RNA: mir-36 microRNA precursor family
RNA sequence: UAUUCAAGGGUGGAUAGGGCCUGUGCUGAUUUUUGCCGCAGUGAUAUUUCUGAGCUAUGAUUAUCACCGGGCGAAAAUUUGGCACAAGCCCGGUCCGCCCUU
Numbered sequence: 001u002a003u004u005c006a007a008g009g010g011u012g013g014a015u016a017g018g019g020c021c022u023g024u025g026c027u028g029a030u031u032u033u034u035g036c037c038g039c040a041g042u043g044a045u046a047u048u049u050c051u052g053a054g055c056u057a058u059g060a061u062u063a064u065c066a067c068c069g070g071g072c073g074a075a076a077a078u079u080u081g082g083c084a085c086a087a088g089c090c091c092g093g094u095c096c097g098c099c100c101u102u
Stems, first nucleotide, its partner, number of pairs: 017091004022086001024084005029078009039069001041067006